[Rfam]
RNA sequence: UGUGUUAAGAAGAAGCGCCCGCUUCUCACCUGGUCGACGCAAAUGGGUUGUUACUAGGUUAAUUGAGAAAUACCGUAAGUUUAUUACGUGUGGGCGACUUUCGUCCACACUUUUUGCAUUGG
Numbered sequence: 001u002g003u004g005u006u007a008a009g010a011a012g013a014a015g016c017g018c019c020c021g022c023u024u025c026u027c028a029c030c031u032g033g034u035c036g037a038c039g040c041a042a043a044u045g046g047g048u049u050g051u052u053a054c055u056a057g058g059u060u061a062a063u064u065g066a067g068a069a070a071u072a073c074c075g076u077a078a079g080u081u082u083a084u085u086a087c088g089u090g091u092g093g094g095c096g097a098c099u100u101u102c103g104u105c106c107a108c109a110c111u112u113u114u115u116g117c118a119u120u121g122g
Stems, first nucleotide, its partner, number of pairs: 011026006028059003036052003039048002089109009